[Rfam]
RNA sequence: AUAAAGUGGAAACAAAAUGAGCAAAGUUCAUUUUGAUAAAAGUUUCUGAUGAAUGGCCACUGACCAAAUAGAUGGUGCAAUACAGAUU
Number, nucleotide and partner (000 for none) at each position: 001a000002u000003a000004a000005a000006g000007u000008g047009g046010a045011a044012a043013c042014a000015a000016a032017a031018u030019g029020a028021g027022c000023a000024a000025a000026g000027u021028u020029c019030a018031u017032u016033u000034u000035g000036a000037u000038a000039a000040a000041a000042g013043u012044u011045u010046c009047u008048g000049a000050u000051g000052a000053a000054u000055g000056g078057c077058c000059a000060c074061u000062g000063a000064c000065c000066a000067a000068a000069u000070a000071g000072a000073u000074g060075g000076u000077g057078c056079a000080a000081u000082a000083c000084a000085g000086a000087u000088u000
Annotation:
Rfam assigns this 88-nucleotide RNA from Eubacterium sp. CAG:156 to the family "GA-cis RNA". Rfam classes the family as a small RNA. The source organism's lineage runs through Bacteria, Bacillati, Clostridia, Eubacteriaceae and Eubacterium.